[Rfam]
RNA: Mu-gpT-DE RNA
RNA sequence: UCCUGACUAAUUGUUCCACAUGGAACAUUAGACACUAGCCAAGACAGGAGAUAAUAAUG
Numbered sequence: 001u002c003c004u005g006a007c008u009a010a011u012u013g014u015u016c017c018a019c020a021u022g023g024a025a026c027a028u029u030a031g032a033c034a035c036u037a038g039c040c041a042a043g044a045c046a047g048g049a050g051a052u053a054a055u056a057a058u059g
Stems, first nucleotide, its partner, number of pairs: 002048004007031005